[Rfam]
The record is a 126-nucleotide sequence from Aminipila luticellarii, which matches "SAM riboswitch aptamer (S box leader)" in Rfam. Pairs were carried over by alignment from the consensus structure, which is taken from published work. It scores 77 bits against the family's covariance model.
RNA sequence: CCCUUAUCAAGAGCGGCGGAGGGAAUAGGCCCUGCGAUGCCCGGCAACCUGUGUAUUUUGGGUGUAUAUUCAGCCAAAUAUAAAAGGUGCUAAAUCCUACAGAAGUGGUAUUCUGAAAGAUGAGGA
Numbered sequence: 001c002c003c004u005u006a007u008c009a010a011g012a013g014c015g016g017c018g019g020a021g022g023g024a025a026u027a028g029g030c031c032c033u034g035c036g037a038u039g040c041c042c043g044g045c046a047a048c049c050u051g052u053g054u055a056u057u058u059u060g061g062g063u064g065u066a067u068a069u070u071c072a073g074c075c076a077a078a079u080a081u082a083a084a085a086g087g088u089g090c091u092a093a094a095u096c097c098u099a100c101a102g103a104a105g106u107g108g109u110a111u112u113c114u115g116a117a118a119g120a121u122g123a124g125g126a
Base pairs, nucleotide, nucleotide: 002125003124004123005122006121007120008119013042015041016040017039021032022031023030026099027098028097029096043091044090045089046088048087049086050083095118100115101114102113103112104111